[Rfam]
RNA sequence: GAUAGGAGGAACCGCUAUGAACGAAGUUCAUACUCGGAAUCGGUUCUGACGACCUGCCCCGCUCGCAUAUGCGAGAGGGGCGAUACAUAUU
Numbered sequence: 001g002a003u004a005g006g007a008g009g010a011a012c013c014g015c016u017a018u019g020a021a022c023g024a025a026g027u028u029c030a031u032a033c034u035c036g037g038a039a040u041c042g043g044u045u046c047u048g049a050c051g052a053c054c055u056g057c058c059c060c061g062c063u064c065g066c067a068u069a070u071g072c073g074a075g076a077g078g079g080g081c082g083a084u085a086c087a088u089a090u091u
Stems, first nucleotide, its partner, number of pairs: 008047006016032006056081003060077001062075001065072002
About this RNA: Rfam assigns this 91-nucleotide sequence to the family "GA-cis RNA". Rfam's curators put it in the seed alignment. The family's consensus secondary structure is taken from published work. By type it is a small RNA.